Annotation: Rfam assigns this 139-nucleotide RNA sequence from Tupaia belangeri to the family "Small nucleolar RNA U109". Pairs were carried over by alignment from the consensus structure, which was predicted with WAR. A reference for the family is Richard et al. (2003), "A common sequence motif determines the Cajal body-specific localization of box H/ACA scaRNAs", EMBO J. Rfam classes the family as an H/ACA-box small nucleolar RNA. Lineage of the source: Eukaryota > Metazoa > Eumetazoa > Tupaia > Tupaia belangeri.
[Rfam]
RNA sequence: AGGCACGUUGGACAGGCAAUCUGCUUCUCUUUAAAGAGCACGGAUGUCUCCCCAGCAUGCCACAUGAAUGAAAUGAGAACUUUGCAGGGCUGCGCACCUCUUGGUUAAGGUUCUGCAGUAGUAUAUUUCUUCCACAAUA
Numbered sequence: 001a002g003g004c005a006c007g008u009u010g011g012a013c014a015g016g017c018a019a020u021c022u023g024c025u026u027c028u029c030u031u032u033a034a035a036g037a038g039c040a041c042g043g044a045u046g047u048c049u050c051c052c053c054a055g056c057a058u059g060c061c062a063c064a065u066g067a068a069u070g071a072a073a074u075g076a077g078a079a080c081u082u083u084g085c086a087g088g089g090c091u092g093c094g095c096a097c098c099u100c101u102u103g104g105u106u107a108a109g110g111u112u113c114u115g116c117a118g119u120a121g122u123a124u125a126u127u128u129c130u131u132c133c134a135c136a137a138u139a
Stems, first nucleotide, its partner, number of pairs: 003060003007056002020042001022040005077132003089119002093115001094113001096111004